[Rfam]
RNA sequence: AGCCAAACUCCUCCUGCAGCUCUGGUGGAAAAUGGAGAAGACUUUUCCUUUCCUCCAUCUCCCCCAGGGCCUGGUGGAGUAAGGCG
Numbered sequence: 001a002g003c004c005a006a007a008c009u010c011c012u013c014c015u016g017c018a019g020c021u022c023u024g025g026u027g028g029a030a031a032a033u034g035g036a037g038a039a040g041a042c043u044u045u046u047c048c049u050u051u052c053c054u055c056c057a058u059c060u061c062c063c064c065c066a067g068g069g070c071c072u073g074g075u076g077g078a079g080u081a082a083g084g085c086g
Base pairs, nucleotide, nucleotide: 002085003084004083007080008079009078010077011076013074014073019070020069021068022067023066024065025064027062028061029060032058033057034056035055036054037053038050039049040048